[Rfam]
RNA sequence: UAAUUUUUUUGAAGCAAAUCUCUAUCUAAUUAUAAUAAAUCUUUAUAUAACUUCUUAGAACUCUAAAUCUUUGCAAGUACGACUACAGCACAUUUAUAUUUAUAAAAUUGCAAACAAAGAAGAAAAUAUUUUGAAAUGAAAUA
Numbered sequence: 001u002a003a004u005u006u007u008u009u010u011g012a013a014g015c016a017a018a019u020c021u022c023u024a025u026c027u028a029a030u031u032a033u034a035a036u037a038a039a040u041c042u043u044u045a046u047a048u049a050a051c052u053u054c055u056u057a058g059a060a061c062u063c064u065a066a067a068u069c070u071u072u073g074c075a076a077g078u079a080c081g082a083c084u085a086c087a088g089c090a091c092a093u094u095u096a097u098a099u100u101u102a103u104a105a106a107a108u109u110g111c112a113a114a115c116a117a118a119g120a121a122g123a124a125a126a127u128a129u130u131u132u133g134a135a136a137u138g139a140a141a142u143a
Stems, first nucleotide, its partner, number of pairs: 004141004008136002012132001014130001019125001023122001025120001027117001030114002

Description:
MIR480 microRNA precursor family: a 143-nucleotide RNA from Populus alba. The source organism's lineage runs through Eukaryota, Embryophyta, fabids, Salicaceae and Populus.